[Rfam]
The family of this 118-nucleotide RNA from bacterium HR28 is "TPP riboswitch aptamer (THI element)".
RNA sequence: AUGGCGUGCCCCGGGAGCUCGGGUGAACCGGGCUGAGAGGGCGGCUGAGGAUCCCGCCGCCGACCGGUAACGACCUGAUCUGGGUAAUACCAGCGAAGGGAGGCCGCAGUUCCGCAAG
Dot-bracket structure: .......(((((((..(((((.......)))))......(((((............)))))..))))......(((...((((......))))...)))..)))..............

Notes
A search with the family's covariance model found it, with a score of 57 bits.